[Rfam]
RNA sequence: GCACACCAGCAAGCGCCAGGUCCGCGCGGUUAUGCGCGGAUGACGAGGCGGGGGCAGUAUCGAACCACUCGGCGGAUGGCCCCCCGGCUGCACAGCCGCAGGUGACGCACAAACCACGCCGGGUGACCGCGUGACAAAAGCGCACCACGUGCACGGGU
Numbered sequence: 001g002c003a004c005a006c007c008a009g010c011a012a013g014c015g016c017c018a019g020g021u022c023c024g025c026g027c028g029g030u031u032a033u034g035c036g037c038g039g040a041u042g043a044c045g046a047g048g049c050g051g052g053g054g055c056a057g058u059a060u061c062g063a064a065c066c067a068c069u070c071g072g073c074g075g076a077u078g079g080c081c082c083c084c085c086g087g088c089u090g091c092a093c094a095g096c097c098g099c100a101g102g103u104g105a106c107g108c109a110c111a112a113a114c115c116a117c118g119c120c121g122g123g124u125g126a127c128c129g130c131g132u133g134a135c136a137a138a139a140g141c142g143c144a145c146c147a148c149g150u151g152c153a154c155g156g157g158u
Stems, first nucleotide, its partner, number of pairs: 020041008050084005060072004085098005102148003107143002115133005121128002

This 158-nucleotide RNA from Tepidiforma thermophila belongs to the Rfam family "glmS glucosamine-6-phosphate activated ribozyme aptamer". It is annotated as a riboswitch. The match comes from Rfam's covariance-model search (68 bits). On this family, see Winkler et al., Nature 2004: "Control of gene expression by a natural metabolite-responsive ribozyme".